[Rfam]
RNA sequence: AUUUAUACAAAGCCGAAUCCGGUGAAUCAAAAGCACCUGUACGGGGGACUUAUUUCUGGGGUGAAUGCCUGUCAUUCUGCAAGCUAGGGAACCUCUUUCCCGAACCCGUCAACUAACCUCGGAGGCCCAAGGAGGAAAAAU
Number, nucleotide and partner (000 for none) at each position: 001a000002u000003u000004u000005a000006u000007a000008c000009a000010a000011a000012g126013c125014c124015g000016a000017a000018u000019c039020c000021g000022g000023u000024g000025a000026a000027u000028c000029a000030a000031a000032a000033g000034c000035a000036c000037c000038u000039g019040u000041a000042c121043g120044g119045g118046g117047g000048a000049c000050u000051u058052a057053u000054u000055u000056c000057u052058g051059g107060g106061g105062u000063g000064a000065a000066u000067g084068c083069c000070u081071g000072u000073c000074a000075u000076u000077c000078u000079g000080c000081a070082a000083g068084c067085u000086a000087g101088g100089g099090a098091a000092c000093c000094u000095c000096u000097u000098u090099c089100c088101c087102g000103a000104a000105c061106c060107c059108g000109u000110c000111a000112a000113c000114u000115a000116a000117c046118c045119u044120c043121g042122g000123a000124g014125g013126c012127c000128c000129a000130a000131g000132g000133a000134g000135g000136a000137a000138a000139a000140a000141u000
Annotation
The family of this 141-nucleotide RNA from Paenibacillus sp. HGF7 is "c-di-AMP riboswitch aptamer (ydaO/yuaA leader)". Rfam's curators write: This family represents a conserved RNA structure found upstream of the ydaO and yuaA genes in Bacillus subtilis and related genes in other bacteria. The ydaO/yuaA element is thought to act as a genetic 'off' switch for the ydaO and yuaA genes in its native state. It is believed that the element may be triggered during osmotic shock leading to activation of ydaO, a predicted amino acid transporter gene, and members of the yuaA-yubG operon which code for KtrA and KtrB K+ transporters. A search with the family's covariance model found it, with a score of 75 bits. The organism belongs to Paenibacillus, within Bacteria.